[Rfam]
RNA sequence: AAUGGAAGAAUAACAAAUUAGAUUUUCUCUUUUGAUUUUCAGUUUUUUUCUCCUGAAACAAUUUAAACCCAACUAAAAGUGCUAAAAAUUAGAAUGAAAAAUCUGAUUUGUUAUUCUCCCAUU
Numbered sequence: 001a002a003u004g005g006a007a008g009a010a011u012a013a014c015a016a017a018u019u020a021g022a023u024u025u026u027c028u029c030u031u032u033u034g035a036u037u038u039u040c041a042g043u044u045u046u047u048u049u050c051u052c053c054u055g056a057a058a059c060a061a062u063u064u065a066a067a068c069c070c071a072a073c074u075a076a077a078a079g080u081g082c083u084a085a086a087a088a089u090u091a092g093a094a095u096g097a098a099a100a101a102u103c104u105g106a107u108u109u110g111u112u113a114u115u116c117u118c119c120c121a122u123u
Stems, first nucleotide, its partner, number of pairs: 001123005007117016023100005030094010041083002045079004
RNA: MIR7504 microRNA precursor family
Organism: Gossypium armourianum